[Rfam]
RNA sequence: CUCCAGGUUCCCUGAGCAGCUCCCAGUGAGCCUGCAGUAUUUUCCUUAUAUGAUCAGGCCCCGUUGUGGGCAGCGCUGCAUGCCUGGAGCCUGAGAGGAUUAUGAAAUGUGCCUGGCAAAGUGGAGCCCAGGGACCUGGUG
Number, nucleotide and partner (000 for none) at each position: 001c000002u139003c000004c138005a137006g136007g135008u134009u133010c132011c131012c000013u000014g000015a000016g000017c000018a000019g127020c126021u125022c124023c123024c000025a000026g000027u000028g000029a000030g000031c000032c000033u000034g000035c000036a000037g000038u000039a000040u000041u000042u000043u000044c000045c000046u000047u000048a000049u000050a000051u000052g000053a000054u094055c093056a092057g091058g090059c089060c000061c087062c086063g000064u000065u000066g083067u082068g081069g000070g079071c078072a077073g000074c000075g000076c000077u072078g071079c070080a000081u068082g067083c066084c000085u000086g062087g061088a000089g059090c058091c057092u056093g055094a054095g000096a000097g000098g000099a000100u000101u000102a000103u000104g000105a000106a000107a000108u000109g000110u000111g000112c000113c000114u000115g000116g000117c000118a000119a000120a000121g000122u000123g023124g022125a021126g020127c019128c000129c000130a000131g011132g010133g009134a008135c007136c006137u005138g004139g002140u000141g000
RNA: small Cajal body-specific RNA 17